Lysine riboswitch aptamer: a 163-nucleotide RNA sequence from Mycoplasma todarodis. Rfam's curators write: Riboswitches are metabolite binding domains within certain messenger RNAs that serve as precision sensors for their corresponding targets. Pairs were carried over by alignment from the consensus structure, which is taken from published work.

RNA sequence: UUAAAGAUUAGAGGAGCUGAAAGCAUUAGUAAAUUAUUGAGGGAUACCUGUGAAAUAGUUGAAAGGGCUAAAGCCGAAUGAUAAAGAGAGUUAUGCCUCUUUACCAUGCAAUAUGGGGGAACACUUCUUAUUGUAUCGCUAACGCGAUGGUGCUAUGAUAAUA
Dot-bracket structure: ........(((....(((...(((.......(((((((...............)))))))......)))..)))...(((.(((((((........))))))).)))((((((.((((.....)))).))))))(((((....)))))....)))........